The family of this 107-nucleotide RNA from Diaphorobacter ruginosibacter is "SAH (S-adenosyl-L-homocysteine) riboswitch aptamer".
Lineage of the source: Bacteria > Pseudomonadati > Betaproteobacteria > Comamonadaceae > Diaphorobacter.
Rfam links the family to the GO terms regulation of gene expression and S-adenosylhomocysteine metabolic process.

[Rfam]
RNA sequence: CGCCCCAAGGAGCGCUGCAGCCGGCUGGUGAACUUUCAUGGAUUGAAUUCACCGCGCCUGUCAGGCUUGGGGCCGAUUCAUACCCACGAUAACGGCGCUCACCUGUG
Numbered sequence: 001c002g003c004c005c006c007a008a009g010g011a012g013c014g015c016u017g018c019a020g021c022c023g024g025c026u027g028g029u030g031a032a033c034u035u036u037c038a039u040g041g042a043u044u045g046a047a048u049u050c051a052c053c054g055c056g057c058c059u060g061u062c063a064g065g066c067u068u069g070g071g072g073c074c075g076a077u078u079c080a081u082a083c084c085c086a087c088g089a090u091a092a093c094g095g096c097g098c099u100c101a102c103c104u105g106u107g
Base pairs, nucleotide, nucleotide: 002073003072004071005070006069007068008067021060023058024057025056
Dot-bracket structure: .(((((((............(.(((..............................))).)......)))))))..................................